[Rfam]
Shown here is a 357-nucleotide sequence from Pannonibacter phragmitetus, a member of the family "Alphaproteobacteria transfer-messenger RNA". Lineage of the source: Bacteria > Pseudomonadota > Hyphomicrobiales > Stappiaceae > Pannonibacter. Rfam classes the family as a non-coding RNA gene. For this family Rfam cites "Phylogenetic analysis of tmRNA secondary structure" (Williams and Bartel, RNA, 1996).
RNA sequence: CCCCUUUCAAUCGGCAAGCGAAAUGCCUAUAUUCCAACUGCCGGUUCACCGGCUACGGCGAUAAAUUGACUGUGUAAUAAGCCUAUCGGACCCGGGGGCGGUACCCGGCGCCUCCACCCAAGCCCACCCCAGCGGUGGGUUUCGGCGGGGGCGAAAUAGGAUCGACGAGGGUGUAAAGACUGCUCUUUCGCUCGGCAUGGUACCACCGAUAUCGGACCAAAUCUGUAGUUGCAAACGACAACUAUGCUCAGGACGUCGCUCUCGCCGCGUAAUGCGGUGCGAGUUGUCCACCUAAAGCCCUGACGGGUAGCACUGUCAGGCGGGGUUCGGAGGCACCUGGCAACAGAAGCCUCCACU
Number, nucleotide and partner (000 for none) at each position: 001c000002c000003c000004c000005u000006u000007u000008c000009a000010a000011u000012c000013g000014g000015c000016a000017a000018g000019c000020g000021a000022a000023a000024u000025g000026c000027c000028u000029a000030u000031a000032u000033u000034c000035c000036a000037a000038c000039u000040g053041c052042c051043g050044g049045u000046u000047c000048a000049c044050c043051g042052g041053c040054u000055a000056c000057g192058g191059c190060g189061a188062u000063a000064a000065a000066u000067u000068g184069a000070c182071u000072g180073u179074g000075u000076a000077a000078u000079a000080a000081g000082c171083c170084u169085a000086u168087c167088g166089g000090a000091c000092c108093c107094g106095g105096g104097g000098g000099c000100g000101g000102u000103a000104c096105c095106c094107g093108g092109c153110g152111c151112c150113u149114c148115c147116a000117c000118c000119c000120a000121a000122g000123c000124c000125c000126a000127c000128c000129c000130c000131a000132g000133c000134g000135g000136u000137g000138g000139g000140u000141u000142u000143c000144g000145g000146c000147g115148g114149g113150g112151g111152c110153g109154a000155a000156a000157u000158a000159g000160g000161a000162u000163c000164g000165a000166c088167g087168a086169g084170g083171g082172u000173g000174u000175a000176a000177a000178g000179a073180c072181u000182g070183c000184u068185c000186u000187u000188u061189c060190g059191c058192u057193c208194g207195g206196c000197a000198u219199g218200g217201u000202a000203c215204c214205a000206c195207c194208g193209a000210u000211a000212u000213c000214g204215g203216a000217c200218c199219a198220a000221a000222u000223c000224u000225g000226u000227a000228g000229u000230u000231g000232c000233a000234a000235a000236c000237g000238a000239c000240a000241a000242c000243u000244a000245u000246g000247c000248u000249c000250a000251g000252g000253a000254c000255g000256u000257c000258g000259c000260u000261c000262u000263c000264g000265c000266c000267g000268c000269g000270u000271a000272a000273u000274g000275c000276g000277g000278u000279g000280c000281g000282a000283g000284u000285u000286g000287u000288c000289c000290a000291c000292c000293u000294a000295a000296a000297g000298c000299c000300c000301u000302g000303a000304c000305g000306g000307g000308u000309a000310g000311c000312a000313c000314u000315g000316u000317c000318a000319g000320g000321c000322g000323g338324g337325g336326u335327u000328c000329g354330g353331a352332g351333g350334c349335a326336c325337c324338u323339g000340g000341c000342a000343a000344c000345a000346g000347a000348a000349g334350c333351c332352u331353c330354c329355a000356c000357u000